[Rfam]
RNA sequence: UGAAAUGAAAUCAGCGUUUGGAUAUGCAAUUUUACGUUGAUUUUAUCUCAUA
Numbered sequence: 001u002g003a004a005a006u007g008a009a010a011u012c013a014g015c016g017u018u019u020g021g022a023u024a025u026g027c028a029a030u031u032u033u034a035c036g037u038u039g040a041u042u043u044u045a046u047c048u049c050a051u052a
Stems, first nucleotide, its partner, number of pairs: 001050003005046013018029003